[Rfam]
RNA sequence: CUCGCGCAGAACAGGGAGCCACCCUGUGCUCUCUGUCUCGAAAUAAUCAGUGAACACAGCUGGUGGUAUCUCAGUUCUUCGCUAGAU
Numbered sequence: 001c002u003c004g005c006g007c008a009g010a011a012c013a014g015g016g017a018g019c020c021a022c023c024c025u026g027u028g029c030u031c032u033c034u035g036u037c038u039c040g041a042a043a044u045a046a047u048c049a050g051u052g053a054a055c056a057c058a059g060c061u062g063g064u065g066g067u068a069u070c071u072c073a074g075u076u077c078u079u080c081g082c083u084a085g086a087u
Stems, first nucleotide, its partner, number of pairs: 008078005015072001016070002018067002021064003024059003028055001030053002
RNA: mir-317 microRNA precursor family